[Rfam]
RNA sequence: GUGUCACCACGCGGGAGCCCACGGUACUGGGCUGAGAGGAAGCCACAGCUUCGACCGCUGAACCUGUCCGGGUCAUGCCGGCGAAGGAAGUGGGCUUCCAUGCACC
Numbered sequence: 001g002u003g004u005c006a007c008c009a010c011g012c013g014g015g016a017g018c019c020c021a022c023g024g025u026a027c028u029g030g031g032c033u034g035a036g037a038g039g040a041a042g043c044c045a046c047a048g049c050u051u052c053g054a055c056c057g058c059u060g061a062a063c064c065u066g067u068c069c070g071g072g073u074c075a076u077g078c079c080g081g082c083g084a085a086g087g088a089a090g091u092g093g094g095c096u097u098c099c100a101u102g103c104a105c106c
Stems, first nucleotide, its partner, number of pairs: 007093004011058004017032005039052005063087003068081004
A member of the RNA family "TPP riboswitch aptamer (THI element)" from Curtobacterium sp. ISL-83, 106 nucleotides long. Gene Ontology term of the family: thiamine pyrophosphate binding. The match comes from Rfam's covariance-model search (60 bits).